The family of this 44-nucleotide sequence from Fuerstiella marisgermanici is "Acido-Lenti-1 RNA". The family has 87 seed sequences and 2,607 matches in Rfam 15.1. It scores 37 bits against the family's covariance model.
[Rfam]
RNA sequence: CCUUGGGCUUACGCCCAAGGCUACGUGCUGCCGCCCUCCAGGCU
Numbered sequence: 001c002c003u004u005g006g007g008c009u010u011a012c013g014c015c016c017a018a019g020g021c022u023a024c025g026u027g028c029u030g031c032c033g034c035c036c037u038c039c040a041g042g043c044u
Stems, first nucleotide, its partner, number of pairs: 001020008033043003